Background: The record is a 61-nucleotide RNA sequence from Pristionchus pacificus, which matches "mir-8364 microRNA precursor family" in Rfam. A search with the family's covariance model found it, with a score of 68 bits. Gene Ontology terms of the family: miRNA-mediated post-transcriptional gene silencing and RISC complex.
RNA sequence: UCUCCAUUUCGCCAGCUCUCUCGUCGGUCAGAGAGGCGAGAGAGCAGGCUAAAUGAGGAGA
Numbered sequence: 001u002c003u004c005c006a007u008u009u010c011g012c013c014a015g016c017u018c019u020c021u022c023g024u025c026g027g028u029c030a031g032a033g034a035g036g037c038g039a040g041a042g043a044g045c046a047g048g049c050u051a052a053a054u055g056a057g058g059a060g061a
Base pairs, nucleotide, nucleotide: 001059002058003057005055006054007053012048013047015045016044017043019041020040021039022038